[Rfam]
RNA sequence: GGCCACGCUUUUGGGGACCCCGGUACAGGCAGGCCGGGACUUCCCUCUUUAACACCAGGCCCAUCCCGCGCAUCGCGACGGGCCACGCUUUUGGGGACCCUGGUACAGGCAGGCCGGGAAUCCCCUUCUUUACACCGGGACUCAUCGCCCUCGUGGCGCUCAGCCCCUCCCGCUUUUGGGGCCUUGGUACAGGCAGGCCGGGGUUUCCCUCUUUUAUUCCUCCC
Numbered sequence: 001g002g003c004c005a006c007g008c009u010u011u012u013g014g015g016g017a018c019c020c021c022g023g024u025a026c027a028g029g030c031a032g033g034c035c036g037g038g039a040c041u042u043c044c045c046u047c048u049u050u051a052a053c054a055c056c057a058g059g060c061c062c063a064u065c066c067c068g069c070g071c072a073u074c075g076c077g078a079c080g081g082g083c084c085a086c087g088c089u090u091u092u093g094g095g096g097a098c099c100c101u102g103g104u105a106c107a108g109g110c111a112g113g114c115c116g117g118g119a120a121u122c123c124c125c126u127u128c129u130u131u132a133c134a135c136c137g138g139g140a141c142u143c144a145u146c147g148c149c150c151u152c153g154u155g156g157c158g159c160u161c162a163g164c165c166c167c168u169c170c171c172g173c174u175u176u177u178g179g180g181g182c183c184u185u186g187g188u189a190c191a192g193g194c195a196g197g198c199c200g201g202g203g204u205u206u207c208c209c210u211c212u213u214u215u216a217u218u219c220c221u222c223c224c
Base pairs, nucleotide, nucleotide: 013045014044015043016042017041018038020037021036022035023034024033058084059083060082061081062080067075068074093125094124095123096122097121099118100117101116102115103114104113138166139165141163142162146158147157148156178209179208180207181206183202184201185200186199187198188197
Dot-bracket structure: ............((((((.(((((........))))))..)))))............(((((....((.....))....)))))........(((((.((((((........))))))..)))))............((.((...(((.......)))...)).))...........((((.((((((........))))))...))))...............